[Rfam]
RNA sequence: UAAUCAGGCAAUUAGCUGCCGAAGACAGUAGGUGCCGUAAGGCAUAAGCAGACCAACGCCUACCGAGGAAUGCGAGAUUCAUUGAAUUGGAUUUUACCUCUGCGUCUUUGUGUACGCAGAGGUUUUUAUAUUUAACC
Numbered sequence: 001u002a003a004u005c006a007g008g009c010a011a012u013u014a015g016c017u018g019c020c021g022a023a024g025a026c027a028g029u030a031g032g033u034g035c036c037g038u039a040a041g042g043c044a045u046a047a048g049c050a051g052a053c054c055a056a057c058g059c060c061u062a063c064c065g066a067g068g069a070a071u072g073c074g075a076g077a078u079u080c081a082u083u084g085a086a087u088u089g090g091a092u093u094u095u096a097c098c099u100c101u102g103c104g105u106c107u108u109u110g111u112g113u114a115c116g117c118a119g120a121g122g123u124u125u126u127u128a129u130a131u132u133u134a135a136c137c
Stems, first nucleotide, its partner, number of pairs: 028063006034043003097122009
Dot-bracket structure: ...........................(((((((((....)))..............)))))).................................(((((((((........)))))))))...............
Shown here is a 137-nucleotide RNA from Lachnospiraceae bacterium M18-1, a member of the family "Ribosomal protein L10 leader". The family's consensus secondary structure was predicted with CMfinder. By type it is a cis-regulatory leader. The source organism's lineage runs through Bacteria, Bacillati, Clostridia, Lachnospirales and Lachnospiraceae.